[Rfam]
RNA sequence: CGUGCAAAACAGAUUGUCGCCUUGUUAUCCCGAUAGCUAUCGGGAUACAUGGAGGAAAGUCCGGGCAACACAGAGUGCCGUGCCACCUAACGGGUGGGAAGCUCAGUAUAAUAUUGGGUUUACAGAUAGUGCCGCAGAAAAUUAAACUACCUCAAAAAGUCACUUCGGCCUAGGCUCAGUGACCUUUUUGCGGAAAAGGUGAAAAGGCGGUGUAAGAGACCACCGUUCCGCCAGUAAUGACGGAAGCAAGGUAAACCUCACGGGUUGUAAGGCCAAAUAGGCCGGUGCUUCGGCUUCGCUCAGCAACCUUUAGUGGUUGUAUUGAGUAAGCUGAUAAAAGAACUUCUCGUUCGAUGCCGGUGGGUAGGCUGCUAGAGGUAAUCAGUGAUGGUUAUCGGAGAUAAAUGACAAUCGCUUUGAAUCAAGUAAUUGGUUUAAAGGACAGAACCCGGCUUAUCGUUUUGCGCUAAGA
Numbered sequence: 001c002g003u004g005c006a007a008a009a010c011a012g013a014u015u016g017u018c019g020c021c022u023u024g025u026u027a028u029c030c031c032g033a034u035a036g037c038u039a040u041c042g043g044g045a046u047a048c049a050u051g052g053a054g055g056a057a058a059g060u061c062c063g064g065g066c067a068a069c070a071c072a073g074a075g076u077g078c079c080g081u082g083c084c085a086c087c088u089a090a091c092g093g094g095u096g097g098g099a100a101g102c103u104c105a106g107u108a109u110a111a112u113a114u115u116g117g118g119u120u121u122a123c124a125g126a127u128a129g130u131g132c133c134g135c136a137g138a139a140a141a142u143u144a145a146a147c148u149a150c151c152u153c154a155a156a157a158a159g160u161c162a163c164u165u166c167g168g169c170c171u172a173g174g175c176u177c178a179g180u181g182a183c184c185u186u187u188u189u190g191c192g193g194a195a196a197a198g199g200u201g202a203a204a205a206g207g208c209g210g211u212g213u214a215a216g217a218g219a220c221c222a223c224c225g226u227u228c229c230g231c232c233a234g235u236a237a238u239g240a241c242g243g244a245a246g247c248a249a250g251g252u253a254a255a256c257c258u259c260a261c262g263g264g265u266u267g268u269a270a271g272g273c274c275a276a277a278u279a280g281g282c283c284g285g286u287g288c289u290u291c292g293g294c295u296u297c298g299c300u301c302a303g304c305a306a307c308c309u310u311u312a313g314u315g316g317u318u319g320u321a322u323u324g325a326g327u328a329a330g331c332u333g334a335u336a337a338a339a340g341a342a343c344u345u346c347u348c349g350u351u352c353g354a355u356g357c358c359g360g361u362g363g364g365u366a367g368g369c370u371g372c373u374a375g376a377g378g379u380a381a382u383c384a385g386u387g388a389u390g391g392u393u394a395u396c397g398g399a400g401a402u403a404a405a406u407g408a409c410a411a412u413c414g415c416u417u418u419g420a421a422u423c424a425a426g427u428a429a430u431u432g433g434u435u436u437a438a439a440g441g442a443c444a445g446a447a448c449c450c451g452g453c454u455u456a457u458c459g460u461u462u463u464g465c466g467c468u469a470a471g472a
Stems, first nucleotide, its partner, number of pairs: 002467009011457001012413007020052002023049003028044003057455003061452005066267004073348003078263005083097005098123001099121010124258002129256002131252003147198002150193002153190007206224002209221003225247001226245005232239002271370004281361006340352004377396008